[Rfam]
RNA sequence: UCGGCGCAAACCGAAAAGCCGUAUACCAAACAGAGUAGGUA
Numbered sequence: 001u002c003g004g005c006g007c008a009a010a011c012c013g014a015a016a017a018g019c020c021g022u023a024u025a026c027c028a029a030a031c032a033g034a035g036u037a038g039g040u041a
Stems, first nucleotide, its partner, number of pairs: 002021004010040003
The record is a 41-nucleotide sequence, which matches "DUF805b RNA" in Rfam. Rfam classes the family as a cis-regulatory element. The family's consensus secondary structure is taken from published work.